The record is an 86-nucleotide RNA from Streptococcus parauberis, which matches "S. pyogenes small RNA 779816" in Rfam. Rfam's curators put it in the seed alignment. Lineage of the source: Bacteria > Bacillati > Lactobacillales > Streptococcus > Streptococcus parauberis. The base pairs follow the family's consensus structure, which was predicted with RNAalifold.
[Rfam]
RNA sequence: GUAAAAAGACCUACAAAAUAGGUUCUUUACUAUCCUUUCUGAUCCCAUGCUCAGAGUCGCCAAACUUUGAGAGCGUGGGAUUUUUU
Number, nucleotide and partner (000 for none) at each position: 001g000002u000003a000004a000005a027006a026007a000008g024009a023010c022011c021012u020013a000014c000015a000016a000017a000018a000019u000020a012021g011022g010023u009024u008025c000026u006027u005028u000029a000030c000031u000032a000033u000034c000035c000036u000037u000038u000039c000040u000041g000042a081043u080044c079045c078046c077047a076048u075049g074050c073051u072052c071053a068054g067055a066056g065057u064058c000059g000060c000061c000062a000063a000064a057065c056066u055067u054068u053069g000070a000071g052072a051073g050074c049075g048076u047077g046078g045079g044080a043081u042082u000083u000084u000085u000086u000